RNA sequence: UUCGCAGAGCCCGUUUGGCUUACUGGCCACCUCCAAUAUAUAUAUGAUCAGAGAUAGAGUUAAGUUGUAAUCAAUGGAGGUGGACAGAAUGCCAAAAUUGCUAUGGAAU
Number, nucleotide and partner (000 for none) at each position: 001u000002u000003c000004g000005c000006a000007g000008a000009g000010c000011c000012c000013g000014u000015u095016u094017g093018g092019c091020u000021u000022a000023c000024u086025g085026g000027c083028c082029a081030c080031c079032u078033c077034c076035a000036a000037u000038a000039u000040a000041u000042a000043u000044a000045u000046g000047a000048u000049c000050a000051g000052a000053g000054a000055u000056a000057g000058a000059g000060u000061u000062a000063a000064g000065u000066u000067g000068u000069a000070a000071u000072c000073a000074a000075u000076g034077g033078a032079g031080g030081u029082g028083g027084a000085c025086a024087g000088a000089a000090u000091g019092c018093c017094a016095a015096a000097a000098u000099u000100g000101c000102u000103a000104u000105g000106g000107a000108a000109u000
The family of this 109-nucleotide sequence from Lathyrus oleraceus is "MIR394 microRNA precursor family". Gene Ontology terms of the family: miRNA-mediated post-transcriptional gene silencing and RISC complex. Pairs were carried over by alignment from the consensus structure, which was predicted with WAR. The source organism's lineage runs through Eukaryota, Tracheophyta, eudicotyledons, Papilionoideae and Lathyrus.